This 55-nucleotide sequence from Kamptonema sp. PCC 6506 belongs to the Rfam family "Nitrogen stress-induced RNA 1". Pairs were carried over by alignment from the consensus structure. The organism belongs to Kamptonema, within Bacteria. Rfam classes the family as a small RNA.

[Rfam]
RNA sequence: UGGUAGAUGCACCCUGAUUGAUCGCCCCCGGCCAAAUUUGGCUGGGGUUUUUUAU
Numbered sequence: 001u002g003g004u005a006g007a008u009g010c011a012c013c014c015u016g017a018u019u020g021a022u023c024g025c026c027c028c029c030g031g032c033c034a035a036a037u038u039u040g041g042c043u044g045g046g047g048u049u050u051u052u053u054a055u
Base pairs, nucleotide, nucleotide: 002013003012004011025047026046028045029044030043031042032041033040034039